[Rfam]
Shown here is a 139-nucleotide RNA sequence from Cavia porcellus, a member of the family "Small nucleolar RNA SNORA12".

RNA sequence: UGGUGUGGUAGUUUCUUUCUUUGUUAAGUUUUCAAAAGGGUCUGACUCUACAACAUACACUGUAAGGAGCUAGCAAAAGCUUAAAAACUGAAAUAUCUCUCUUGAGCUUUUUUUGUAUCAGAUAGUGGCUCUCACAAUC
Numbered sequence: 001u002g003g004u005g006u007g008g009u010a011g012u013u014u015c016u017u018u019c020u021u022u023g024u025u026a027a028g029u030u031u032u033c034a035a036a037a038g039g040g041u042c043u044g045a046c047u048c049u050a051c052a053a054c055a056u057a058c059a060c061u062g063u064a065a066g067g068a069g070c071u072a073g074c075a076a077a078a079g080c081u082u083a084a085a086a087a088c089u090g091a092a093a094u095a096u097c098u099c100u101c102u103u104g105a106g107c108u109u110u111u112u113u114u115g116u117a118u119c120a121g122a123u124a125g126u127g128g129c130u131c132u133c134a135c136a137a138u139c
Stems, first nucleotide, its partner, number of pairs: 005054002008051004018038001020036004066132006072081003098124001100122003
The match comes from Rfam's covariance-model search (90 bits). Rfam classes the family as an H/ACA-box small nucleolar RNA. Rfam's curators write: U108 belongs to the H/ACA family of snoRNAs. The sequence is predicted to guide the pseudouridylation of the U372 residue in the 28S rRNA subunit. Rfam links the family to the GO terms RNA processing and nucleolus. Taxonomically the source falls in Cavia (Eukaryota, Eumetazoa, Tetrapoda, Eutheria).